[Rfam]
RNA sequence: UCGUAACACGAACCGGUGCUAAAGGGUCCUGCCCAACGGCUACUGACAGGUGCUGUCGGGGCAGAGACCUUUAGCACCGGUCCGUGUUACAAA
Numbered sequence: 001u002c003g004u005a006a007c008a009c010g011a012a013c014c015g016g017u018g019c020u021a022a023a024g025g026g027u028c029c030u031g032c033c034c035a036a037c038g039g040c041u042a043c044u045g046a047c048a049g050g051u052g053c054u055g056u057c058g059g060g061g062c063a064g065a066g067a068c069c070u071u072u073a074g075c076a077c078c079g080g081u082c083c084g085u086g087u088u089a090c091a092a093a
Base pairs, nucleotide, nucleotide: 003090004089005088006087007086008085009084010083012081013080014079015078016077017076018075019074020073021072022071023070024069025068027066029064030063032060033059034058036056037055043049044048

Shown here is a 93-nucleotide RNA sequence from Sorghum bicolor, a member of the family "MIR5387 microRNA precursor family". Its family is annotated with RISC complex and miRNA-mediated post-transcriptional gene silencing in the Gene Ontology. The family has 2 seed sequences and 1,029 matches in Rfam 15.1. Pairs were carried over by alignment from the consensus structure, which was predicted with RNAalifold. NCBI's taxonomy places the organism under Eukaryota, Petrosaviidae, Andropogonodae, Sorghinae, Sorghum. The match comes from Rfam's covariance-model search (90 bits).